This 86-nucleotide sequence from Momordica charantia belongs to the Rfam family "Small nucleolar RNA snoR109". Lineage of the source: Eukaryota > Embryophyta > Magnoliopsida > Mesangiospermae > Momordica. By type it is an H/ACA-box small nucleolar RNA. The base pairs follow the family's consensus structure, which was predicted with WAR. On this family, see Marker et al., Curr Biol 2002: "Experimental RNomics: identification of 140 candidates for small non-messenger RNAs in the plant Arabidopsis thaliana".
RNA sequence: AGGCUGUAGCCAAAUCAUAUGAGAGAAGUUAACUGGCCGGUUGUUGUUCUCUGUCAACGAAUCUGCUUACCGAACUUCCUACAUUU
Numbered sequence: 001a002g003g004c005u006g007u008a009g010c011c012a013a014a015u016c017a018u019a020u021g022a023g024a025g026a027a028g029u030u031a032a033c034u035g036g037c038c039g040g041u042u043g044u045u046g047u048u049c050u051c052u053g054u055c056a057a058c059g060a061a062u063c064u065g066c067u068u069a070c071c072g073a074a075c076u077u078c079c080u081a082c083a084u085u086u
Base pairs, nucleotide, nucleotide: 023080025078026077027076028075029074030073035067036066037065039063040062041061042060043058044057045056046055